The family of this 82-nucleotide RNA from Acipenser ruthenus is "Small nucleolar RNA SNORD71".
By type it is an H/ACA-box small nucleolar RNA.
Pairs were carried over by alignment from the consensus structure, which was predicted with RNAalifold.
The literature on the family includes a 2001 paper in EMBO J by Huttenhofer et al., "RNomics: an experimental approach that identifies 201 candidates for novel, small, non-messenger RNAs in mouse".
NCBI's taxonomy places the organism under Eukaryota, Craniata, Acipenserinae, Acipenserini, Acipenser.
About the family: snoRNA HBII-239 belongs to the family of C/D snoRNAs.It is the human orthologue of the mouse MBII-239 described and is predicted to guide 2'O-ribose methylation of 5.8S rRNA on residue U14.

[Rfam]
RNA sequence: ACAAAAUUGUAUGAUGAAGAAUUUAAGUGAUCCAUCGACAGAGUUUAUUAAAACUAUGUUGACAGUCAUUUCUCUGACAAUA
Numbered sequence: 001a002c003a004a005a006a007u008u009g010u011a012u013g014a015u016g017a018a019g020a021a022u023u024u025a026a027g028u029g030a031u032c033c034a035u036c037g038a039c040a041g042a043g044u045u046u047a048u049u050a051a052a053a054c055u056a057u058g059u060u061g062a063c064a065g066u067c068a069u070u071u072c073u074c075u076g077a078c079a080a081u082a
Base pairs, nucleotide, nucleotide: 006081007080008079009075013032014031015030017028035062036061037060038059039058043054044053045052